[Rfam]
Nucleotides: 086
Base pairs, nucleotide, nucleotide: 010080011079014077015076016075017074018073019072020071021070023068024067025066028063029062030061031060032059033058034057036055037054
Number, partner (000 for none) and nucleotide at each position: 001000u002000g003000u004000u005000g006000g007000u008000u009000a010080u011079u012000u013000u014077g015076u016075u017074u018073u019072a020071g021070a022000a023068u024067u025066c026000c027000u028063a029062c030061g031060c032059u033058u034057u035000a036055c037054c038000g039000u040000u041000g042000c043000c044000a045000a046000g047000c048000u049000u050000u051000u052000u053000g054037g055036g056000c057034a058033a059032a060031g061030c062029g063028u064000u065000u066025g067024g068023a069000u070021u071020c072019u073018a074017a075016a076015a077014c078000u079011a080010a081000a082000u083000u084000u085000c086000u